[Rfam]
RNA sequence: CUCUUUAAUAGUUCUUUCACAAUUUGUCUAGUAGGUUUUCCAGUUUUCACCAGAAAAACCCCC
Numbered sequence: 001c002u003c004u005u006u007a008a009u010a011g012u013u014c015u016u017u018c019a020c021a022a023u024u025u026g027u028c029u030a031g032u033a034g035g036u037u038u039u040c041c042a043g044u045u046u047u048c049a050c051c052a053g054a055a056a057a058a059c060c061c062c063c
Stems, first nucleotide, its partner, number of pairs: 034060003037056004043050002